Group II catalytic intron D1-D4-3: a 175-nucleotide RNA sequence from Erysipelothrix larvae.
The match comes from Rfam's covariance-model search (154 bits).
RNA sequence: UCCAUCGCGAGGUGGAAUCUGAAGGAAGUCUAAGGCAAAUCUCUGGUCCGACGAACAGAAAUCACAUAAAAGGCGACACUUGAGGGUAAGGCUGCAAAAGAAGUUGAAGCCCAAUAGUUACUGACAUAAUCAAGUGGUGUAAAUGUGGCGGAUAGAUAGAGAGGAAGAGUUUGUA
Numbered sequence: 001u002c003c004a005u006c007g008c009g010a011g012g013u014g015g016a017a018u019c020u021g022a023a024g025g026a027a028g029u030c031u032a033a034g035g036c037a038a039a040u041c042u043c044u045g046g047u048c049c050g051a052c053g054a055a056c057a058g059a060a061a062u063c064a065c066a067u068a069a070a071a072g073g074c075g076a077c078a079c080u081u082g083a084g085g086g087u088a089a090g091g092c093u094g095c096a097a098a099a100g101a102a103g104u105u106g107a108a109g110c111c112c113a114a115u116a117g118u119u120a121c122u123g124a125c126a127u128a129a130u131c132a133a134g135u136g137g138u139g140u141a142a143a144u145g146u147g148g149c150g151g152a153u154a155g156a157u158a159g160a161g162a163g164g165a166a167g168a169g170u171u172u173g174u175a
Stems, first nucleotide, its partner, number of pairs: 001016006030173001032171001036167001040162006046153005062148006073140003077136007084112004090105004

Lineage of the source: Bacteria > Bacillati > Bacillota > Erysipelotrichaceae > Erysipelothrix.